[Rfam]
RNA: mir-277 microRNA precursor family
Organism: Nesidiocoris tenuis
Nucleotides: 094
Base pairs, nucleotide, nucleotide: 009087010086011085016079017078018077019076020075021074022073023072025069027067028066029065030064031063032062033061034060035059
Number, partner (000 for none) and nucleotide at each position: 001000g002000u003000a004000g005000c006000g007000u008000c009087g010086g011085u012000g013000u014000g015000g016079g017078u018077g019076c020075c021074a022073g023072g024000a025069g026000g027067g028066c029065a030064u031063u032062u033061a034060c035059a036000u037000g038000g039000u040000c041000c042000c043000g044000u045000a046000u047000g048000a049000u050000u051000u052000g053000c054000a055000a056000u057000u058000c059035u060034g061033u062032a063031a064030a065029u066028g067027c068000a069025c070000u071000a072023u073022c074021u075020g076019g077018u078017a079016c080000g081000a082000c083000a084000c085011a086010c087009c088000u089000u090000c091000g092000c093000u094000a